RNA sequence: CUUUAGGAUCCUCAUCUAGCCCCUACAUGAGCCAGCGAUAUUUUCCUUAUAUGAUCGGGCUCCAUUGUGGGCAGUGCCUUGUGUCCGGAGCCCGAGAGGAUUAUGAAAACGUGUUGGGCGACUUGGGCCUGAAGACGAGG
Numbered sequence: 001c002u003u004u005a006g007g008a009u010c011c012u013c014a015u016c017u018a019g020c021c022c023c024u025a026c027a028u029g030a031g032c033c034a035g036c037g038a039u040a041u042u043u044u045c046c047u048u049a050u051a052u053g054a055u056c057g058g059g060c061u062c063c064a065u066u067g068u069g070g071g072c073a074g075u076g077c078c079u080u081g082u083g084u085c086c087g088g089a090g091c092c093c094g095a096g097a098g099g100a101u102u103a104u105g106a107a108a109a110c111g112u113g114u115u116g117g118g119c120g121a122c123u124u125g126g127g128c129c130u131g132a133a134g135a136c137g138a139g140g
Stems, first nucleotide, its partner, number of pairs: 001140003006136001009135002012132002019128003023125001055095006062088002067084003071080001
RNA: small Cajal body-specific RNA 17
Organism: Orycteropus afer